[Rfam]
RNA sequence: UCGGCCCCGGUUCACGCAUGGCGCAAUUCCGUGCCCUGCGACCCGGCGCC
Numbered sequence: 001u002c003g004g005c006c007c008c009g010g011u012u013c014a015c016g017c018a019u020g021g022c023g024c025a026a027u028u029c030c031g032u033g034c035c036c037u038g039c040g041a042c043c044c045g046g047c048g049c050c
Stems, first nucleotide, its partner, number of pairs: 003050003007046004015040004020035004